RNA sequence: CAGACUGAGGAGCACUGCAGCAGGUCCGUGAUCUGCCAGGCUCAGUCGAAAAACAGUUCAACGGUGCUUAUAUUUU
Numbered sequence: 001c002a003g004a005c006u007g008a009g010g011a012g013c014a015c016u017g018c019a020g021c022a023g024g025u026c027c028g029u030g031a032u033c034u035g036c037c038a039g040g041c042u043c044a045g046u047c048g049a050a051a052a053a054c055a056g057u058u059c060a061a062c063g064g065u066g067c068u069u070a071u072a073u074u075u076u
Base pairs, nucleotide, nucleotide: 003047004046005045006044007043008042021035022034023033024032025031026030

The family of this 76-nucleotide RNA sequence from Mariprofundus sp. EBB-1 is "SAH (S-adenosyl-L-homocysteine) riboswitch aptamer". The family's consensus secondary structure is taken from published work. A search with the family's covariance model found it, with a score of 57 bits.